[Rfam]
Source information: This 61-nucleotide sequence from Alkalicella caledoniensis belongs to the Rfam family "Fluoride riboswitch aptamer (crcB RNA motif)". Its family is annotated with response to fluoride and positive regulation of gene expression in the Gene Ontology.

RNA sequence: GGAAUAUAUAGUGAUGGAGUUCACUAAAAUCGCUAUAAAAGCUAAUGACUCCUACCCCAAA
Number, nucleotide and partner (000 for none) at each position: 001g000002g000003a000004a000005u000006a000007u000008a000009u000010a025011g024012u023013g022014a000015u000016g052017g051018a050019g049020u048021u047022c013023a012024c011025u010026a000027a000028a000029a000030u000031c000032g042033c041034u040035a000036u000037a000038a000039a000040a034041g033042c032043u000044a000045a000046u000047g021048a020049c019050u018051c017052c016053u000054a000055c000056c000057c000058c000059a000060a000061a000
The organism belongs to Alkalicella, within Bacteria.